[Rfam]
Record summary:
This 74-nucleotide RNA from Salmo trutta belongs to the Rfam family "mir-216 microRNA precursor family".

RNA sequence: AGACUGGGUAAUCUCUGCAGGCAACUGUGAUGUCUUAUGGUUUCUCACAUUGACCUGGAGAGGUUCUGCAGUCC
Numbered sequence: 001a002g003a004c005u006g007g008g009u010a011a012u013c014u015c016u017g018c019a020g021g022c023a024a025c026u027g028u029g030a031u032g033u034c035u036u037a038u039g040g041u042u043u044c045u046c047a048c049a050u051u052g053a054c055c056u057g058g059a060g061a062g063g064u065u066c067u068g069c070a071g072u073c074c
Stems, first nucleotide, its partner, number of pairs: 003072004010065007020056002024051001026049005
On this family, see Shao et al., Gene 2008: "Identification of novel chicken microRNAs and analysis of their genomic organization". The source organism's lineage runs through Eukaryota, Bilateria, Euteleostomi, Teleostei and Salmo. It scores 59 bits against the family's covariance model.